tRNA: an 85-nucleotide RNA from Pirellulimonas nuda. The family's consensus secondary structure is taken from published work.
RNA sequence: GGUCGGGUGGCAGAGUGGUCGAAUGCACCGGUCUUGAAAACCGGCGUGCCGCAAGGUACCGGGGGUUCGAAUCCCUCCCCGACCG
Numbered sequence: 001g002g003u004c005g006g007g008u009g010g011c012a013g014a015g016u017g018g019u020c021g022a023a024u025g026c027a028c029c030g031g032u033c034u035u036g037a038a039a040a041c042c043g044g045c046g047u048g049c050c051g052c053a054a055g056g057u058a059c060c061g062g063g064g065g066u067u068c069g070a071a072u073c074c075c076u077c078c079c080c081g082a083c084c085g
Stems, first nucleotide, its partner, number of pairs: 001084007010026003028044005061077005

The family's RNA type in Rfam is transfer RNA.